[Rfam]
RNA sequence: UUGGCGGUGUAGUCCCAGAUCCGCUCGUCCUCGGUGAGCGACUGCUCGCCGAACGCCUCGCCGUCGGCCAGCACGCCGAGGUUCACCGGGUCGCCGUAGUCGCCGACGCCGACCUUGUUCACCUUGCCGUGCGCGAUCAGGUAGACGUGGUCGGCGACCGAGCCGAACUCGACGAUCACCUGGCCCGGCUGGUACUCCUGCUGGACGAACUUGUCCGCCAUCGCGGCCAGCACCGCGUCGUCGUCGAACUCGCUGAGCACGGAGAGCUCGCGCAGCUCGCCCGGGAUGACCCGGACGUGCGCGCCGACGUUGGUGAAGCUGAGCCGGCCGUCGCCGAUCCGGUAGGUCAUCCGCCGGUUCACCCGGUAGGCGCCGCCGGCGACCUGGACCCAGGGCAGCUUCCGCAGCAGCCACCGGGAGGAGAUCUCCUGCAUCUGCGGAGCGGUCUUGGUGGUGGUGGUCAGGUUCCGCGCCGCGGCGGUGCUCAGGCUGCGGCGCCG
Numbered sequence: 001u002u003g004g005c006g007g008u009g010u011a012g013u014c015c016c017a018g019a020u021c022c023g024c025u026c027g028u029c030c031u032c033g034g035u036g037a038g039c040g041a042c043u044g045c046u047c048g049c050c051g052a053a054c055g056c057c058u059c060g061c062c063g064u065c066g067g068c069c070a071g072c073a074c075g076c077c078g079a080g081g082u083u084c085a086c087c088g089g090g091u092c093g094c095c096g097u098a099g100u101c102g103c104c105g106a107c108g109c110c111g112a113c114c115u116u117g118u119u120c121a122c123c124u125u126g127c128c129g130u131g132c133g134c135g136a137u138c139a140g141g142u143a144g145a146c147g148u149g150g151u152c153g154g155c156g157a158c159c160g161a162g163c164c165g166a167a168c169u170c171g172a173c174g175a176u177c178a179c180c181u182g183g184c185c186c187g188g189c190u191g192g193u194a195c196u197c198c199u200g201c202u203g204g205a206c207g208a209a210c211u212u213g214u215c216c217g218c219c220a221u222c223g224c225g226g227c228c229a230g231c232a233c234c235g236c237g238u239c240g241u242c243g244u245c246g247a248a249c250u251c252g253c254u255g256a257g258c259a260c261g262g263a264g265a266g267c268u269c270g271c272g273c274a275g276c277u278c279g280c281c282c283g284g285g286a287u288g289a290c291c292c293g294g295a296c297g298u299g300c301g302c303g304c305c306g307a308c309g310u311u312g313g314u315g316a317a318g319c320u321g322a323g324c325c326g327g328c329c330g331u332c333g334c335c336g337a338u339c340c341g342g343u344a345g346g347u348c349a350u351c352c353g354c355c356g357g358u359u360c361a362c363c364c365g366g367u368a369g370g371c372g373c374c375g376c377c378g379g380c381g382a383c384c385u386g387g388a389c390c391c392a393g394g395g396c397a398g399c400u401u402c403c404g405c406a407g408c409a410g411c412c413a414c415c416g417g418g419a420g421g422a423g424a425u426c427u428c429c430u431g432c433a434u435c436u437g438c439g440g441a442g443c444g445g446u447c448u449u450g451g452u453g454g455u456g457g458u459g460g461u462c463a464g465g466u467u468c469c470g471c472g473c474c475g476c477g478g479c480g481g482u483g484c485u486c487a488g489g490c491u492g493c494g495g496c497g498c499c500g
Base pairs, nucleotide, nucleotide: 006390007389008388010386011385012384015381018380020327021326023324024323025322026321027320029318031316032315035313037311038310039309040308042306047303048302049301052298057230058229060227061226062225063224064223065111066110067109068108075103077102078101079100083096086093117222119220122217129210130209131206134203135202139199140198141197143196144195154189158188159187160186162184163183165177168174236294240290241289242288243287244286245285249283252280253279256277257276258275262269328342329341330340351379352378353377355375356374357373360372362370363369391431392430393429394428395427397425399423400422401421403418405416407415437476438475439474440473442471443470444469445468447465448464449463450462451461452460480499481498484497486495488493
Record summary: A member of the RNA family "Saccharopolyspora sRNA 350" from Actinoplanes octamycinicus, 500 nucleotides long. A reference for the family is Liu et al. (2013), "Prediction and characterization of small non-coding RNAs related to secondary metabolites in Saccharopolyspora erythraea", PLoS One. Taxonomically the source falls in Actinoplanes (Bacteria, Actinomycetota, Actinomycetes, Micromonosporales). Its family is annotated with regulation of secondary metabolite biosynthetic process in the Gene Ontology. The match comes from Rfam's covariance-model search (172 bits).